[Rfam]
RNA sequence: UAGUGAAUUAUGCUCCGAAGCCCGCGCCCCGUCGUAGGAGACGGCCCUUGUGCCGUUUCAAAACCGGGAACGGGCCCGGGCGUCCGUCGCAACUGGCGCGAGACUUAGCGCAGUCCGCGGCGACGACGACCCGCAGGGCACGGCGGGAAACGGCCGUGUCUCCCACUAUCGGAAAGGAGUUCCAUACAGGGAGCA
Numbered sequence: 001u002a003g004u005g006a007a008u009u010a011u012g013c014u015c016c017g018a019a020g021c022c023c024g025c026g027c028c029c030c031g032u033c034g035u036a037g038g039a040g041a042c043g044g045c046c047c048u049u050g051u052g053c054c055g056u057u058u059c060a061a062a063a064c065c066g067g068g069a070a071c072g073g074g075c076c077c078g079g080g081c082g083u084c085c086g087u088c089g090c091a092a093c094u095g096g097c098g099c100g101a102g103a104c105u106u107a108g109c110g111c112a113g114u115c116c117g118c119g120g121c122g123a124c125g126a127c128g129a130c131c132c133g134c135a136g137g138g139c140a141c142g143g144c145g146g147g148a149a150a151c152g153g154c155c156g157u158g159u160c161u162c163c164c165a166c167u168a169u170c171g172g173a174a175a176g177g178a179g180u181u182c183c184a185u186a187c188a189g190g191g192a193g194c195a
Stems, first nucleotide, its partner, number of pairs: 004188001012180005020075005027068003077133004136161009146151001162172002
A member of the RNA family "Molybdenum/Tungsten riboswitch aptamer (Moco RNA motif)" from Sporobacter termitidis, 195 nucleotides long.
Pairs were carried over by alignment from the consensus structure, which is taken from published work.
The organism belongs to Sporobacter termitidis, within Bacteria.
The match comes from Rfam's covariance-model search (44 bits).
Gene Ontology terms of the family: regulation of gene expression, molybdenum ion binding and tungstate binding.